A member of the RNA family "SAM riboswitch aptamer (S box leader)" from Clostridium tyrobutyricum, 105 nucleotides long.
[Rfam]
Nucleotides: 105
Base pairs, nucleotide, nucleotide: 001105002104003103004102005101006100007099008098013041015040016039017038021031022030023029025080026079027078028077042072043071044070045069047068048067049064050063051062052061076097081094082093083092084091085090
Number, partner (000 for none) and nucleotide at each position: 001105u002104u003103c004102u005101u006100a007099u008098c009000a010000a011000g012000a013041g014000a015040g016039g017038u018000a019000g020000a021031g022030g023029g024000a025080u026079u027078g028077g029023c030022c031021c032000u033000a034000u035000g036000a037000u038017a039016c040015c041013c042072g043071g044070c045069a046000a047068c048067c049064u050063g051062a052061g053000u054000a055000a056000g057000u058000u059000u060000a061052u062051u063050c064049a065000a066000c067048g068047g069045u070044g071043c072042u073000a074000a075000u076097u077028c078027c079026a080025g081094c082093a083092g084091g085090u086000a087000u088000a089000u090085a091084c092083c093082u094081g095000a096000a097076a098008g099007a100006u101005g102004a103003g104002a105001g
A search with the family's covariance model found it, with a score of 95 bits. Taxonomically the source falls in Clostridium tyrobutyricum (Bacteria, Bacillota, Clostridiaceae, Clostridium).